[Rfam]
RNA sequence: AUGCUGCCUGGUUCAAGUAAUCCAGGAUAGGCUGUAUCCCGGCCACGCGGCCUAUACUUGAUUACUUGUUUCAGGAAGUGU
Numbered sequence: 001a002u003g004c005u006g007c008c009u010g011g012u013u014c015a016a017g018u019a020a021u022c023c024a025g026g027a028u029a030g031g032c033u034g035u036a037u038c039c040c041g042g043c044c045a046c047g048c049g050g051c052c053u054a055u056a057c058u059u060g061a062u063u064a065c066u067u068g069u070u071u072c073a074g075g076a077a078g079u080g081u
Base pairs, nucleotide, nucleotide: 002080003079004078005077007075008074009073010072011071014068015067016066017065018064019063020062021061022060024058025057027055028054029053030052031051032050033049
RNA: mir-26 microRNA precursor family
Organism: Acipenser ruthenus